RNA sequence: UUUUAGCCCUGAUUGCAGCGGUAUCUUUUUAUUUUUUUCUUUAAAAAAAUAAAAAAUAUAGCGGAAAGCAGGAAUAUGG
Number, nucleotide and partner (000 for none) at each position: 001u000002u000003u000004u000005a000006g000007c000008c000009c071010u070011g069012a000013u067014u066015g000016c000017a000018g062019c061020g000021g000022u000023a057024u056025c000026u054027u000028u000029u052030u051031a050032u049033u048034u047035u046036u045037u044038u043039c000040u000041u000042u000043a038044a037045a036046a035047a034048a033049a032050u031051a030052a029053a000054a026055a000056a024057u023058a000059u000060a000061g019062c018063g000064g000065a000066a014067a013068g000069c011070a010071g009072g000073a000074a000075u000076a000077u000078g000079g000
Flavo-1 RNA: a 79-nucleotide sequence. It is one of the family's seed sequences. By type it is a small RNA.